[Rfam]
Shown here is a 77-nucleotide RNA sequence from Myotis brandtii, a member of the family "mir-147 microRNA precursor family". Gene Ontology terms of the family: RISC complex and miRNA-mediated post-transcriptional gene silencing. The match comes from Rfam's covariance-model search (82 bits). The family's consensus secondary structure was predicted with RNAalifold. The source organism's lineage runs through Eukaryota, Opisthokonta, Gnathostomata, Boreoeutheria and Myotis.
RNA sequence: UAUGAAUCUAGCGGAAACACUUCUGCACAAUCUAGAUUAUGGAUCCAGUGUACGGAAGUGCUUCUGCUACGUUUCUA
Numbered sequence: 001u002a003u004g005a006a007u008c009u010a011g012c013g014g015a016a017a018c019a020c021u022u023c024u025g026c027a028c029a030a031u032c033u034a035g036a037u038u039a040u041g042g043a044u045c046c047a048g049u050g051u052a053c054g055g056a057a058g059u060g061c062u063u064c065u066g067c068u069a070c071g072u073u074u075c076u077a
Stems, first nucleotide, its partner, number of pairs: 001077002004074004009069008018060008027051003032048002